[Rfam]
RNA sequence: GCACGAAAAAGGCAACCCUCCGGAAACGGAGAGGACGCAAAGCUAUAGGGGCUAACGCUGUCAGGUGUAGACAGUCAUGCCAGCCAGCUGCCGUG
Numbered sequence: 001g002c003a004c005g006a007a008a009a010a011g012g013c014a015a016c017c018c019u020c021c022g023g024a025a026a027c028g029g030a031g032a033g034g035a036c037g038c039a040a041a042g043c044u045a046u047a048g049g050g051g052c053u054a055a056c057g058c059u060g061u062c063a064g065g066u067g068u069a070g071a072c073a074g075u076c077a078u079g080c081c082a083g084c085c086a087g088c089u090g091c092c093g094u095g
Stems, first nucleotide, its partner, number of pairs: 012038002017033001018031005041089004048085002050081003057075006
Shown here is a 95-nucleotide sequence from Alicyclobacillus hesperidum, a member of the family "c-di-GMP-I riboswitch aptamer". Rfam describes the family as follows. GEMM was predicted in a large-scale screen for bacterial structured RNA regulatory elements. NCBI's taxonomy places the organism under Bacteria, Bacilli, Caryophanales, Alicyclobacillaceae, Alicyclobacillus.